[Rfam]
RNA sequence: AUCCGUAAUAGAGGUUGCAGAGGACACGAGUAGUUUUCCGGGAAAUUCCCCGCUAGGGAUCGGAUAAUGAAAAGGGACUUUGCCGAAGUCAUCAGCGUUAGCGGGCACUGCAUGAUUGAGACGCGGCUCAAUAGGCCACGGAUUGUCACAGUAAUGUGGAGUGCUAGGACGGAC
Dot-bracket structure: .....(..(((.....((((((..(.......(((.((((....................)))).)))......)..))))))...(((((((((.((......)).))).))))))((..((.((((.....)))).))..)).(((((....)))))....)))..).....
The record is a 174-nucleotide sequence from Oenococcus kitaharae, which matches "Lysine riboswitch aptamer" in Rfam. Taxonomically the source falls in Oenococcus kitaharae (Bacteria, Bacillati, Bacilli, Lactobacillales).